[Rfam]
RNA sequence: UGGGAGGCGGAUACCUGGGCAGUCCUAAGCAAUGCUCUGCCCGCCACUAGUCCUCCCUACAGCAUCCUUGCUCUCUGAUGACCGGGGCGAAUUAAGUGAAAUCGUCACGGACAGAUACGGAGCUGACACUU
Numbered sequence: 001u002g003g004g005a006g007g008c009g010g011a012u013a014c015c016u017g018g019g020c021a022g023u024c025c026u027a028a029g030c031a032a033u034g035c036u037c038u039g040c041c042c043g044c045c046a047c048u049a050g051u052c053c054u055c056c057c058u059a060c061a062g063c064a065u066c067c068u069u070g071c072u073c074u075c076u077g078a079u080g081a082c083c084g085g086g087g088c089g090a091a092u093u094a095a096g097u098g099a100a101a102u103c104g105u106c107a108c109g110g111a112c113a114g115a116u117a118c119g120g121a122g123c124u125g126a127c128a129c130u131u
Stems, first nucleotide, its partner, number of pairs: 002057006016043003022037001025034001068125001070123005082110003087105004
The record is a 131-nucleotide RNA from Liparis tanakae, which matches "Small Cajal body specific RNA 8" in Rfam. From the family's description: scaRNAs are a specific class of small nuclear RNAs which localise to the Cajal bodies and guide the modification of RNA polymerase II transcribed spliceosomal RNAs U1, U2, U4, U5 and U12. The match comes from Rfam's covariance-model search (116 bits). Rfam 15.1 lists 955 matches to the family in 741 species. Pairs were carried over by alignment from the consensus structure, which is taken from published work. The source organism's lineage runs through Eukaryota, Actinopterygii, Ctenosquamata, Cottioidei and Liparis. Its family is annotated with RNA processing, Cajal body and nucleolus in the Gene Ontology. A reference for the family is Darzacq et al. (2002), "Cajal body-specific small nuclear RNAs: a novel class of 2'-O-methylation and pseudouridylation guide RNAs", EMBO J.